Small Cajal body-specific RNA 7: a 320-nucleotide RNA from Phoenicopterus ruber. The organism belongs to Phoenicopterus ruber, within Eukaryota. Gene Ontology terms of the family: RNA processing and nucleolus. By type it is a small Cajal body RNA. A reference for the family is Darzacq et al. (2002), "Cajal body-specific small nuclear RNAs: a novel class of 2'-O-methylation and pseudouridylation guide RNAs", EMBO J. It scores 186 bits against the family's covariance model.

RNA sequence: UGGAAGUGAUGAAAUAGAGAUAAUUGGAUGUCUCUUUGAAUGGAGUGUGUGUGAUCAAUGGAAUUUAAACCAAGUCAGGCUGGGGGUGGGGUGUGGGGAGUGCGUGUGCACGCGUGUGUGUAUAGAAAAGGCUUUAAAUGGGGGCACUGAUAGUGCAGUGCUGAUUCCGGAGUGCAUCUGAGGCAUGUUGUUACAUUCUGGGGUGCCACUAUACAACAUUGCCGAUGAUUAAAGCCCAAAACAAGCCCACCAAGACAAGCCUAGGCAUCCUAAAUCUCUAACAGGUUCAUUAAUGAGAGUGAUCCUGUGAUCUGAUCCAA
Numbered sequence: 001u002g003g004a005a006g007u008g009a010u011g012a013a014a015u016a017g018a019g020a021u022a023a024u025u026g027g028a029u030g031u032c033u034c035u036u037u038g039a040a041u042g043g044a045g046u047g048u049g050u051g052u053g054a055u056c057a058a059u060g061g062a063a064u065u066u067a068a069a070c071c072a073a074g075u076c077a078g079g080c081u082g083g084g085g086g087u088g089g090g091g092u093g094u095g096g097g098g099a100g101u102g103c104g105u106g107u108g109c110a111c112g113c114g115u116g117u118g119u120g121u122a123u124a125g126a127a128a129a130g131g132c133u134u135u136a137a138a139u140g141g142g143g144g145c146a147c148u149g150a151u152a153g154u155g156c157a158g159u160g161c162u163g164a165u166u167c168c169g170g171a172g173u174g175c176a177u178c179u180g181a182g183g184c185a186u187g188u189u190g191u192u193a194c195a196u197u198c199u200g201g202g203g204u205g206c207c208a209c210u211a212u213a214c215a216a217c218a219u220u221g222c223c224g225a226u227g228a229u230u231a232a233a234g235c236c237c238a239a240a241a242c243a244a245g246c247c248c249a250c251c252a253a254g255a256c257a258a259g260c261c262u263a264g265g266c267a268u269c270c271u272a273a274a275u276c277u278c279u280a281a282c283a284g285g286u287u288c289a290u291u292a293a294u295g296a297g298a299g300u301g302a303u304c305c306u307g308u309g310a311u312c313u314g315a316u317c318c319a320a
Stems, first nucleotide, its partner, number of pairs: 001319004186218006192208001194205004